[Rfam]
c-di-GMP-I riboswitch aptamer: an 81-nucleotide RNA from Paraferrimonas sedimenticola.
The organism belongs to Paraferrimonas, within Bacteria.
A search with the family's covariance model found it, with a score of 61 bits.
RNA sequence: UUGUCUAACUGCCAAACCCUCAGUGAUGUGGGGACGGAAAGCCACGGGUCUCAUGGAGUUUGAGACAGCCGGGUUGCAAAG
Numbered sequence: 001u002u003g004u005c006u007a008a009c010u011g012c013c014a015a016a017c018c019c020u021c022a023g024u025g026a027u028g029u030g031g032g033g034a035c036g037g038a039a040a041g042c043c044a045c046g047g048g049u050c051u052c053a054u055g056g057a058g059u060u061u062g063a064g065a066c067a068g069c070c071g072g073g074u075u076g077c078a079a080a081g
Stems, first nucleotide, its partner, number of pairs: 012037002017032003021028002040075004045071003048066006